[Rfam]
RNA sequence: AACGCCAGCUGUCCUGUCGCACCGAUGUAUUUCGGUGAGGAAAGUCCGGGCAACACAGGGUACCGUACUUCCUAACGGGAAGGGGUUUUAGAAAUAAGGCCACAGAAAGUGCAACAGAAAAUAAACUACCCCUGUCUAUUUUUAGAGAAGGGAAAAGGUGAAACGGCGAGGUAAGAGCUCACCGCCCCGGUGGUAACAUUCGGGGGCAAGGCAAACCUUACGGGUUGAAAGGCCAAAUAAACCCUGAAUAGUGAAGCUGCCCGCUUCCGCGUUUGGCUGAAAAGUUGAAACUUCAGGGAGGGUAGGCUGCUAGAUCGCAAUCGCAAGAUUGAGGCAAGAUAAAUGACAGGACACGACAGAACCCGGCUUACAGGCUGGCAUUAUUU
Numbered sequence: 001a002a003c004g005c006c007a008g009c010u011g012u013c014c015u016g017u018c019g020c021a022c023c024g025a026u027g028u029a030u031u032u033c034g035g036u037g038a039g040g041a042a043a044g045u046c047c048g049g050g051c052a053a054c055a056c057a058g059g060g061u062a063c064c065g066u067a068c069u070u071c072c073u074a075a076c077g078g079g080a081a082g083g084g085g086u087u088u089u090a091g092a093a094a095u096a097a098g099g100c101c102a103c104a105g106a107a108a109g110u111g112c113a114a115c116a117g118a119a120a121a122u123a124a125a126c127u128a129c130c131c132c133u134g135u136c137u138a139u140u141u142u143u144a145g146a147g148a149a150g151g152g153a154a155a156a157g158g159u160g161a162a163a164c165g166g167c168g169a170g171g172u173a174a175g176a177g178c179u180c181a182c183c184g185c186c187c188c189g190g191u192g193g194u195a196a197c198a199u200u201c202g203g204g205g206g207c208a209a210g211g212c213a214a215a216c217c218u219u220a221c222g223g224g225u226u227g228a229a230a231g232g233c234c235a236a237a238u239a240a241a242c243c244c245u246g247a248a249u250a251g252u253g254a255a256g257c258u259g260c261c262c263g264c265u266u267c268c269g270c271g272u273u274u275g276g277c278u279g280a281a282a283a284g285u286u287g288a289a290a291c292u293u294c295a296g297g298g299a300g301g302g303u304a305g306g307c308u309g310c311u312a313g314a315u316c317g318c319a320a321u322c323g324c325a326a327g328a329u330u331g332a333g334g335c336a337a338g339a340u341a342a343a344u345g346a347c348a349g350g351a352c353a354c355g356a357c358a359g360a361a362c363c364c365g366g367c368u369u370a371c372a373g374g375c376u377g378g379c380a381u382u383a384u385u386u
Stems, first nucleotide, its partner, number of pairs: 001382002004379007011371001012351007020037006042369003046366005051227004063223005068082005083103001084101007104218002109216002111212002126157002129152003133148001135146004165183002168180003184207001185205005190199003231308004242298005283292003315334002318331005
This 386-nucleotide RNA from a Cytophagales bacterium belongs to the Rfam family "Bacterial RNase P class A". Rfam's curators write: Ribonuclease P (RNase P) is a ubiquitous endoribonuclease, found in archaea, bacteria and eukarya as well as chloroplasts and mitochondria. Its best characterised activity is the generation of mature 5'-ends of tRNAs by cleaving the 5'-leader elements of precursor-tRNAs. Cellular RNase Ps are ribonucleoproteins. RNA from bacterial RNase Ps retains its catalytic activity in the absence of the protein subunit, i.e. it is a ribozyme. Isolated eukaryotic and archaeal RNase P RNA has not been shown to retain its catalytic function, but is still essential for the catalytic activity of the holoenzyme. Although the archaeal and eukaryotic holoenzyme s have a much greater protein content than the bacterial ones, the RNA cores from all the three lineages are homologous -- helices corresponding to P1, P2, P3, P4, and P10/11 are common to all cellular RNase P RNAs. Yet, there is considerable sequence variation, particularly among the eukaryotic RNAs. Identified in Yersinia as Ysr151/RnpB. The match comes from Rfam's covariance-model search (262 bits). Rfam links the family to the GO terms tRNA processing, dimeric ribonuclease P complex and ribonuclease P activity. By type it is a ribozyme.